[Rfam]
Notes: TPP riboswitch aptamer (THI element): a 115-nucleotide RNA from Alteribacillus bidgolensis. Pairs were carried over by alignment from the consensus structure, which is taken from published work. The source organism's lineage runs through Bacteria, Bacillati, Caryophanales, Bacillaceae and Alteribacillus. Gene Ontology term of the family: thiamine pyrophosphate binding. A search with the family's covariance model found it, with a score of 85 bits.
RNA sequence: UCAAUUAACUAGGGGAGUCCAAUAAGCUGGGCUGAGAAAGAAACGCGUGAAAGUUUCUUGACCCUUUGGACCUGAUCUGGAUCAUACCAGCGUAGGGAAGUUAGAAAAUCAUCAC
Numbered sequence: 001u002c003a004a005u006u007a008a009c010u011a012g013g014g015g016a017g018u019c020c021a022a023u024a025a026g027c028u029g030g031g032c033u034g035a036g037a038a039a040g041a042a043a044c045g046c047g048u049g050a051a052a053g054u055u056u057c058u059u060g061a062c063c064c065u066u067u068g069g070a071c072c073u074g075a076u077c078u079g080g081a082u083c084a085u086a087c088c089a090g091c092g093u094a095g096g097g098a099a100g101u102u103a104g105a106a107a108a109u110c111a112u113c114a115c
Base pairs, nucleotide, nucleotide: 006103007102008101009100010099011065012064013063014062016059017032018031019030020029021028039058040057041056042055043054071096072095073094074093077090078089079088080087